[Rfam]
RNA sequence: UCAAACGUGGUUCGUGAACCUCCCACUUAAAAAAACUAAGGAGAA
Dot-bracket structure: ......((((....[[......))))..........]].......

Shown here is a 45-nucleotide RNA sequence from Psychrobacillus sp. FJAT-21963, a member of the family "PreQ1 (pre queuosine) riboswitch aptamer".
The organism belongs to Psychrobacillus, within Bacteria.
The literature on the family includes a 2004 paper in J Biol Chem by Reader et al., "Identification of four genes necessary for biosynthesis of the modified nucleoside queuosine".
It scores 49 bits against the family's covariance model.
Its family is annotated with queuosine biosynthetic process in the Gene Ontology.